About this RNA:
SAM riboswitch aptamer (S box leader): a 105-nucleotide RNA sequence from Planococcus halotolerans. It scores 93 bits against the family's covariance model. The organism belongs to Planococcus, within Bacteria. Rfam links the family to the GO term regulation of gene expression.

RNA sequence: UUCUUAUCUAGAGAGACGGAGGGAUUUGGCCCUUUGAUGUCUCAGCAACCUGCCUGCAUAGGCAAAGGUGCUAAUUCCAAUAGGCGCGAGCCUAGAAGAUGAGAA
Numbered sequence: 001u002u003c004u005u006a007u008c009u010a011g012a013g014a015g016a017c018g019g020a021g022g023g024a025u026u027u028g029g030c031c032c033u034u035u036g037a038u039g040u041c042u043c044a045g046c047a048a049c050c051u052g053c054c055u056g057c058a059u060a061g062g063c064a065a066a067g068g069u070g071c072u073a074a075u076u077c078c079a080a081u082a083g084g085c086g087c088g089a090g091c092c093u094a095g096a097a098g099a100u101g102a103g104a105a
Base pairs, nucleotide, nucleotide: 001105002104003103004102005101006100007099008098013043014042015041016040017039021032022031023030026080027079028078029077044072045071046070047069049068050067051064052063053062054061076097081094082093083092084091085090